[Rfam]
RNA sequence: UCCGGCACUGCUUGAGAUUGGAAAAUUCUACAAUAAAUACACUAAACCGAGUAGGUUGAAGCGCUAAUGGCGGGCUGCACCUGAAAAAGGCAUCUUUAUAGACGGCAGAUUACAAAGGUUCUUCAAACACUCAAAUCCUGUCUUUCAGGAAUUUUUCUCAACAAAUAGCAGUGCCUUUUUU
Numbered sequence: 001u002c003c004g005g006c007a008c009u010g011c012u013u014g015a016g017a018u019u020g021g022a023a024a025a026u027u028c029u030a031c032a033a034u035a036a037a038u039a040c041a042c043u044a045a046a047c048c049g050a051g052u053a054g055g056u057u058g059a060a061g062c063g064c065u066a067a068u069g070g071c072g073g074g075c076u077g078c079a080c081c082u083g084a085a086a087a088a089g090g091c092a093u094c095u096u097u098a099u100a101g102a103c104g105g106c107a108g109a110u111u112a113c114a115a116a117g118g119u120u121c122u123u124c125a126a127a128c129a130c131u132c133a134a135a136u137c138c139u140g141u142c143u144u145u146c147a148g149g150a151a152u153u154u155u156u157c158u159c160a161a162c163a164a165a166u167a168g169c170a171g172u173g174c175c176u177u178u179u180u181u
Stems, first nucleotide, its partner, number of pairs: 055128003058124004063119003068114002075108004080090003093102003